[Rfam]
RNA sequence: CCCUGACAAAGGCAAACCGUCCGAGAGGGCGGGGCGCAAAACCACGGGUCCGUGAGUCGGUCUGAUAACGACGCAUGUCGCGAUUCAGGCUUGGCUUCAGGAAAGCCGAGUUGCCUGG
Numbered sequence: 001c002c003c004u005g006a007c008a009a010a011g012g013c014a015a016a017c018c019g020u021c022c023g024a025g026a027g028g029g030c031g032g033g034g035c036g037c038a039a040a041a042c043c044a045c046g047g048g049u050c051c052g053u054g055a056g057u058c059g060g061u062c063u064g065a066u067a068a069c070g071a072c073g074c075a076u077g078u079c080g081c082g083a084u085u086c087a088g089g090c091u092u093g094g095c096u097u098c099a100g101g102a103a104a105g106c107c108g109a110g111u112u113g114c115c116u117g118g
Stems, first nucleotide, its partner, number of pairs: 012037002017032006040112003045108003049102002055097001
RNA: c-di-GMP-I riboswitch aptamer